This 60-nucleotide sequence from Pristionchus pacificus belongs to the Rfam family "mir-8315 microRNA precursor family". The source organism's lineage runs through Eukaryota, Metazoa, Nematoda, Diplogasteroidea and Pristionchus.
RNA sequence: GUCCUCAAACAUUCUGGUAUUUCGCAAAUUGAAAAGCGAUACCAGUCUGGAUGAGGCUGA
Numbered sequence: 001g002u003c004c005u006c007a008a009a010c011a012u013u014c015u016g017g018u019a020u021u022u023c024g025c026a027a028a029u030u031g032a033a034a035a036g037c038g039a040u041a042c043c044a045g046u047c048u049g050g051a052u053g054a055g056g057c058u059g060a
Stems, first nucleotide, its partner, number of pairs: 001058001003056005010049002014045006022039004